The record is a 71-nucleotide RNA from Saccharopolyspora rhizosphaerae, which matches "Actino-pnp RNA" in Rfam. Lineage of the source: Bacteria > Bacillati > Actinomycetes > Pseudonocardiaceae > Saccharopolyspora.

[Rfam]
RNA sequence: GCCGGUCCUCGGUAGUGGCUGCCGGGCAAGUCGUCACGAGACGGUCCCGGGAGCUUCGAUCGAUGGCCGGC
Numbered sequence: 001g002c003c004g005g006u007c008c009u010c011g012g013u014a015g016u017g018g019c020u021g022c023c024g025g026g027c028a029a030g031u032c033g034u035c036a037c038g039a040g041a042c043g044g045u046c047c048c049g050g051g052a053g054c055u056u057c058g059a060u061c062g063a064u065g066g067c068c069g070g071c
Base pairs, nucleotide, nucleotide: 001071002070003069004068005067006066007065009063010062011061012060013059017055018054019053020052022050023049024048025047026046030045031044032043033042034041035040
It scores 63 bits against the family's covariance model.